A member of the RNA family "ASdes TB sRNA" from Kitasatospora viridis, 68 nucleotides long.
The family's consensus secondary structure is taken from published work.
A search with the family's covariance model found it, with a score of 65 bits.
Taxonomically the source falls in Kitasatospora (Bacteria, Bacillati, Actinomycetes, Kitasatosporales).
[Rfam]
RNA sequence: AGGGCCCGCGGGUCCACCGUGCGGGUCACCAGCAGGUAGUCGCGCAGCGCGGUGCCGUGCCGGGCCUC
Numbered sequence: 001a002g003g004g005c006c007c008g009c010g011g012g013u014c015c016a017c018c019g020u021g022c023g024g025g026u027c028a029c030c031a032g033c034a035g036g037u038a039g040u041c042g043c044g045c046a047g048c049g050c051g052g053u054g055c056c057g058u059g060c061c062g063g064g065c066c067u068c
Stems, first nucleotide, its partner, number of pairs: 005062001011030003016026003035056004040052005